[Rfam]
RNA: Small nucleolar RNA U19
RNA sequence: AUGUGGUUUAGUUAGGGCAGACAGCAAUUGGAACCCAAUUAAUUUUGGGAUCCUUUAAGAGAGGUCUUUUGAAGGGACUUCGCAAUCUCAUUGAUUGUUCCUCAAGUAGCCUUUCACAUUU
Numbered sequence: 001a002u003g004u005g006g007u008u009u010a011g012u013u014a015g016g017g018c019a020g021a022c023a024g025c026a027a028u029u030g031g032a033a034c035c036c037a038a039u040u041a042a043u044u045u046u047g048g049g050a051u052c053c054u055u056u057a058a059g060a061g062a063g064g065u066c067u068u069u070u071g072a073a074g075g076g077a078c079u080u081c082g083c084a085a086u087c088u089c090a091u092u093g094a095u096u097g098u099u100c101c102u103c104a105a106g107u108a109g110c111c112u113u114u115c116a117c118a119u120u121u
Stems, first nucleotide, its partner, number of pairs: 004019002009016001034049005059115007068106004073102006